[Rfam]
RNA sequence: AGGAGCGUCCUCGCUGUCCUGUGCCCUCCCAGCCUCCGCCUGUCCUGGGGGGAGCACAGGAUCUUGGGCUGUGUCCC
Numbered sequence: 001a002g003g004a005g006c007g008u009c010c011u012c013g014c015u016g017u018c019c020u021g022u023g024c025c026c027u028c029c030c031a032g033c034c035u036c037c038g039c040c041u042g043u044c045c046u047g048g049g050g051g052g053a054g055c056a057c058a059g060g061a062u063c064u065u066g067g068g069c070u071g072u073g074u075c076c077c
Base pairs, nucleotide, nucleotide: 002076003075004074010068011067012066013065016062017061018060019059020058021057022056023055024054025052026051027050028049029048030047031046032045

mir-8791 microRNA precursor family: a 77-nucleotide RNA from Nyctereutes procyonoides. Lineage of the source: Eukaryota > Metazoa > Tetrapoda > Laurasiatheria > Nyctereutes. The base pairs follow the family's consensus structure, which was predicted with RNAalifold.